[Rfam]
RNA sequence: GGCGGGCGCCGCGACUGGCGAACGUGGAAGUGACCACGGGGGAACGGCGCCCGGACCGCACACGAGGUGCCGCCCGCCUGGGCACCCCGG
Numbered sequence: 001g002g003c004g005g006g007c008g009c010c011g012c013g014a015c016u017g018g019c020g021a022a023c024g025u026g027g028a029a030g031u032g033a034c035c036a037c038g039g040g041g042g043a044a045c046g047g048c049g050c051c052c053g054g055a056c057c058g059c060a061c062a063c064g065a066g067g068u069g070c071c072g073c074c075c076g077c078c079u080g081g082g083c084a085c086c087c088c089g090g
Stems, first nucleotide, its partner, number of pairs: 003053009015041002017078004024037004067085005
The record is a 90-nucleotide RNA sequence from Streptomyces smaragdinus, which matches "ZMP/ZTP riboswitch aptamer (pfl RNA motif)" in Rfam. A search with the family's covariance model found it, with a score of 52 bits. The family's consensus secondary structure is taken from published work. Gene Ontology terms of the family: one-carbon metabolic process and regulation of purine nucleotide biosynthetic process.